A member of the RNA family "Purine riboswitch aptamer" from Peribacillus faecalis, 102 nucleotides long.
A search with the family's covariance model found it, with a score of 92 bits.

[Rfam]
RNA sequence: AAUAUUAAAUAUGAUGUCUCUCAUAUAAUAGCGAGAAUAUGGCUCGCGAGUUUCUACCAAGUUACCGUAAACAACUUGACUAUGAGUGAGUAAUUUUUUUCU
Numbered sequence: 001a002a003u004a005u006u007a008a009a010u011a012u013g014a015u016g017u018c019u020c021u022c023a024u025a026u027a028a029u030a031g032c033g034a035g036a037a038u039a040u041g042g043c044u045c046g047c048g049a050g051u052u053u054c055u056a057c058c059a060a061g062u063u064a065c066c067g068u069a070a071a072c073a074a075c076u077u078g079a080c081u082a083u084g085a086g087u088g089a090g091u092a093a094u095u096u097u098u099u100u101c102u
Stems, first nucleotide, its partner, number of pairs: 018088001020086006029049001031047005058078006